[Rfam]
Nucleotides: 293
Stems, first nucleotide, its partner, number of pairs: 001293004009285001012251006021059005035049005068277005077227001079225002094108005109125006126223007145209001253264004
Number, partner (000 for none) and nucleotide at each position: 001293c002292c003291a004290a005000u006000g007000u008000u009285a010000a011000u012251c013250u014249c015248g016247u017246a018000c019000g020000u021059g022058g023057g024056g025055u026000g027000c028000a029000c030000a031000u032000a033000c034000u035049g036048a037047g038046u039045g040000c041000u042000c043000g044000u045039c046038a047037c048036u049035c050000c051000u052000u053000c054000c055025g056024c057023c058022u059021c060000g061000g062000g063000a064000a065000g066000g067000u068277c069276u070275g071274a072273g073000g074000a075000a076000a077227g078000a079225u080224c081000u082000u083000g084000u085000g086000a087000u088000u089000u090000g091000a092000u093000a094108c095107a096106u097105u098104c099000u100000a101000g102000c103000c104098g105097g106096a107095u108094g109125c110124u111123u112122u113121c114120u115000u116000c117000a118000u119000a120114a121113g122112a123111a124110a125109g126223a127222u128221a129220a130219g131218g132217g133000a134000a135000c136000c137000a138000g139000a140000a141000a142000a143000u144000a145209c146000g147000a148000u149000u150000u151000c152000a153000u154000g155000u156000a157000u158000a159000g160000c161000u162000u163000g164000g165000g166000a167000u168000a169000c170000u171000u172000u173000a174000c175000c176000a177000g178000u179000a180000g181000g182000c183000a184000a185000a186000a187000g188000u189000g190000g191000a192000g193000g194000c195000a196000u197000g198000u199000a200000c201000a202000u203000g204000a205000c206000a207000u208000u209145g210000u211000u212000g213000g214000a215000a216000a217132c218131c219130c220129u221128u222127a223126u224080g225079a226000c227077c228000a229000g230000c231000a232000u233000u234000u235000u236000u237000a238000g239000u240000u241000u242000a243000a244000u245000c246017u247016a248015c249014g250013a251012g252000a253264u254263g255262a256261c257000c258000a259000a260000g261256g262255u263254c264253a265000c266000a267000a268000c269000u270000c271000a272000a273072u274071u275070c276069a277068g278000a279000c280000u281000a282000g283000u284000c285009u286000u287000u288000c289000a290004u291003u292002g293001g
A member of the RNA family "Nuclear RNase P" from Brenthis ino, 293 nucleotides long. Rfam classes the family as a ribozyme.